[Rfam]
Background:
This 68-nucleotide RNA sequence belongs to the Rfam family "L2-Alphaproteobacteria ribosomal protein leader".
RNA sequence: GGGGAUCUACGGAGCCCUAUAACCUCGGGUCCAAGUUAUCGGGCCCGCUAGCUGACGGAAGACAGAAA
Numbered sequence: 001g002g003g004g005a006u007c008u009a010c011g012g013a014g015c016c017c018u019a020u021a022a023c024c025u026c027g028g029g030u031c032c033a034a035g036u037u038a039u040c041g042g043g044c045c046c047g048c049u050a051g052c053u054g055a056c057g058g059a060a061g062a063c064a065g066a067a068a
Stems, first nucleotide, its partner, number of pairs: 001018004006014001008012001027046006